[Rfam]
RNA sequence: UUUCGAAGUUUUCCUCGAUAGUUAACUGCAGCCGGUUCCAUAAUUCGGCAGUUAACUGCCGAGGAAUAU
Dot-bracket structure: ...........((.(((.(((((((((((..................))))))))))).))).))....